The record is a 131-nucleotide RNA from Salmonella enterica, which matches "EFASI RNA" in Rfam.
Rfam's curators put it in the seed alignment.
[Rfam]
RNA sequence: ACGUUCUGGUAUUGAGGCGGUCAGCCUGAAUUAACAGGUACUGACUGGGGAGAAUCUACCGCUGUGCAGAGCACGUCGCGGUCUCCUGCAACAACUCAACAUGGCCUCGCCCUGCUACACAAUACCAAACG
Numbered sequence: 001a002c003g004u005u006c007u008g009g010u011a012u013u014g015a016g017g018c019g020g021u022c023a024g025c026c027u028g029a030a031u032u033a034a035c036a037g038g039u040a041c042u043g044a045c046u047g048g049g050g051a052g053a054a055u056c057u058a059c060c061g062c063u064g065u066g067c068a069g070a071g072c073a074c075g076u077c078g079c080g081g082u083c084u085c086c087u088g089c090a091a092c093a094a095c096u097c098a099a100c101a102u103g104g105c106c107u108c109g110c111c112c113u114g115c116u117a118c119a120c121a122a123u124a125c126c127a128a129a130c131g
Stems, first nucleotide, its partner, number of pairs: 002131004007127008018047006048087004059081004063075005
Pairs were carried over by alignment from the consensus structure, which is taken from published work. The organism belongs to Salmonella enterica subsp. enterica serovar Infantis, within Bacteria.